Rfam assigns this 97-nucleotide RNA sequence from Marinobacter persicus to the family "Glycine riboswitch aptamer".
RNA sequence: AUCAAGCCGACUGGAGAGCGACUGCCAGAGCAGUCCACCGAAGGGGCAAGCAGGGGCCACCCUGUAAACUCUCAGGUAUCAGGACAGGGGGAGAGGC
Numbered sequence: 001a002u003c004a005a006g007c008c009g010a011c012u013g014g015a016g017a018g019c020g021a022c023u024g025c026c027a028g029a030g031c032a033g034u035c036c037a038c039c040g041a042a043g044g045g046g047c048a049a050g051c052a053g054g055g056g057c058c059a060c061c062c063u064g065u066a067a068a069c070u071c072u073c074a075g076g077u078a079u080c081a082g083g084a085c086a087g088g089g090g091g092a093g094a095g096g097c
Base pairs, nucleotide, nucleotide: 007091008090011087012086013085020035021034022033023032037077038076039075040073041072044071045070046069050065051064052063053062
A search with the family's covariance model found it, with a score of 56 bits.